RNA sequence: AAAGUCAGCCAGGCAGUCGCUGCCGCCUAGUGCGGGAGAGGAAAGUCCGGGCUCCGCAGAGCGGGAUGACGGCUAACGGCCGUACGCCGUGAGGCGAGGAAUAGGGCCACAGAGACGAGUAAAUCGCGGUUCGCCGCGAUGGAUGUGAAACGCGGUAACCUCCAUCCGGAGCAAGACCAAAUAGGGGAACAAUGGCGUGGCUCGCGCUGUUCCCGGGUAGGUUGCUUGAGCCUGCGAGCAAUUGCAGGCCUAGAGGAAUGACUGUCCACGACAGAACCCGGCUUAUCGGCUGACUUUUUCU
Number, nucleotide and partner (000 for none) at each position: 001a297002a296003a295004g294005u293006c292007a291008g290009c289010c288011a286012g266013g265014c264015a263016g262017u261018c260019g000020c038021u037022g000023c035024c034025g033026c032027c000028u000029a000030g000031u000032g026033c025034g024035g023036g000037a021038g020039a000040g000041g000042a000043a284044a283045g282046u000047c281048c280049g279050g278051g277052c171053u170054c169055c168056g000057c000058a000059g203060a202061g201062c200063g000064g167065g166066a165067u164068g163069a083070c082071g081072g080073c079074u000075a000076a000077c000078g000079g073080c072081c071082g070083u069084a000085c096086g095087c094088c093089g000090u000091g000092a000093g088094g087095c086096g085097a000098g000099g162100a161101a000102u000103a000104g160105g159106g156107c155108c154109a000110c000111a000112g000113a000114g000115a000116c000117g000118a000119g000120u000121a144122a000123a140124u139125c138126g137127c136128g135129g134130u000131u000132c000133g000134c129135c128136g127137c126138g125139a124140u123141g000142g000143a000144u121145g000146u000147g000148a000149a000150a000151c000152g000153c000154g108155g107156u106157a000158a000159c105160c104161u100162c099163c068164a067165u066166c065167c064168g055169g054170a053171g052172c000173a000174a000175g223176a222177c221178c220179a000180a000181a000182u000183a000184g000185g214186g213187g212188a211189a210190c209191a000192a000193u000194g208195g207196c206197g205198u204199g000200g062201c061202u060203c059204g198205c197206g196207c195208u194209g190210u189211u188212c187213c186214c185215g000216g000217g000218u000219a000220g178221g177222u176223u175224g000225c000226u000227u000228g000229a000230g249231c248232c247233u246234g245235c244236g243237a242238g000239c000240a000241a000242u237243u236244g235245c234246a233247g232248g231249c230250c000251u000252a000253g000254a000255g000256g000257a000258a000259u000260g018261a017262c016263u015264g014265u013266c012267c000268a000269c000270g000271a000272c000273a000274g000275a000276a000277c051278c050279c049280g048281g047282c045283u044284u043285a000286u011287c000288g010289g009290c008291u007292g006293a005294c004295u003296u002297u001298u000299u000300c000301u000
Notes
The family of this 301-nucleotide RNA sequence from Novimethylophilus kurashikiensis is "Bacterial RNase P class A". The family's consensus secondary structure is taken from published work. A search with the family's covariance model found it, with a score of 256 bits. The source organism's lineage runs through Bacteria, Pseudomonadati, Pseudomonadota, Betaproteobacteria and Novimethylophilus. From the family's description: Ribonuclease P (RNase P) is a ubiquitous endoribonuclease, found in archaea, bacteria and eukarya as well as chloroplasts and mitochondria.